[Rfam]
RNA sequence: GAGGCUGGAGGUCCACGCCCGACAGCGCGAUGCGCCCUCGGGCGCGCUCGUG
Numbered sequence: 001g002a003g004g005c006u007g008g009a010g011g012u013c014c015a016c017g018c019c020c021g022a023c024a025g026c027g028c029g030a031u032g033c034g035c036c037c038u039c040g041g042g043c044g045c046g047c048u049c050g051u052g
Base pairs, nucleotide, nucleotide: 016044017043018042019041020040021039022038025035026034027033028032
A member of the RNA family "ffh sRNA" from Microvirga brassicacearum, 52 nucleotides long.
The organism belongs to Microvirga, within Bacteria.
Rfam classes the family as a small RNA.